The record is a 127-nucleotide RNA from Bos taurus, which matches "Small nucleolar RNA ACA64" in Rfam. The organism belongs to Bos, within Eukaryota. It is annotated as an H/ACA-box small nucleolar RNA. A reference for the family is Schattner et al. (2006), "A computational screen for mammalian pseudouridylation guide H/ACA RNAs", RNA. The sequence is in the family's curated seed alignment. Rfam 15.1 lists 9,537 matches to the family in 620 species.
[Rfam]
RNA sequence: GUUGGUUGAAAAUCACCUUCGGCUCUGACCAUGGCCGCAGGUGAGAUUCGGCGCCCAGAGCCACUGGGGGCCUUAGCUCACUGCCCGCUUCUCUGUGUGGGGAUGUGAAACCCAGGCCCCGACACGC
Number, nucleotide and partner (000 for none) at each position: 001g000002u000003u000004g000005g052006u051007u050008g049009a048010a047011a000012a000013u044014c043015a042016c041017c000018u000019u000020c000021g036022g035023c034024u033025c000026u000027g000028a000029c000030c000031a000032u000033g024034g023035c022036c021037g000038c000039a000040g000041g016042u015043g014044a013045g000046a000047u010048u009049c008050g007051g006052c005053g000054c000055c000056c000057a000058g000059a000060g000061c000062c000063a000064c000065u000066g000067g120068g000069g118070g117071c116072c115073u114074u000075a000076g000077c000078u108079c107080a106081c105082u000083g000084c000085c000086c099087g098088c097089u000090u000091c000092u000093c000094u000095g000096u000097g088098u087099g086100g000101g000102g000103a000104u000105g081106u080107g079108a078109a000110a000111c000112c000113c000114a073115g072116g071117c070118c069119c000120c067121g000122a000123c000124a000125c000126g000127c000